[Rfam]
Small nucleolar RNA SNORA77: a 132-nucleotide RNA sequence from Oxyruncus cristatus. The family has 19 seed sequences and 843 matches in Rfam 15.1. Pairs were carried over by alignment from the consensus structure, which was predicted with RNAalifold. For this family Rfam cites "A computational screen for mammalian pseudouridylation guide H/ACA RNAs" (Schattner et al., RNA, 2006). About the family: ACA63 (SNORA77) is a member of the H/ACA class of snoRNAs that guide the sites of modification of uridines to pseudouridines. This snoRNA was identified by computational screening and its expression in mouse experimentally verified by Northern blot and primer extension analysis. ACA63 is proposed to guide the pseudouridylation of 18S rRNA U814. Rfam links the family to the GO terms RNA processing and nucleolus.

RNA sequence: GCAGACUCACUCUGUGCUGAACUGCAGCCUUCAGUUCAGCUGCUUUUCUGUCUGCAAGAGUAACCGCUCACUCCAGUGACCAUGGCCUUCUUUGCUGUAGAAGGCUGUUACAGUUGCUGUUGGGACAUUGCU
Numbered sequence: 001g002c003a004g005a006c007u008c009a010c011u012c013u014g015u016g017c018u019g020a021a022c023u024g025c026a027g028c029c030u031u032c033a034g035u036u037c038a039g040c041u042g043c044u045u046u047u048c049u050g051u052c053u054g055c056a057a058g059a060g061u062a063a064c065c066g067c068u069c070a071c072u073c074c075a076g077u078g079a080c081c082a083u084g085g086c087c088u089u090c091u092u093u094g095c096u097g098u099a100g101a102a103g104g105c106u107g108u109u110a111c112a113g114u115u116g117c118u119g120u121u122g123g124g125a126c127a128u129u130g131c132u
Stems, first nucleotide, its partner, number of pairs: 001055006016040005022034003068123003074119004079114002083110002087107001090104002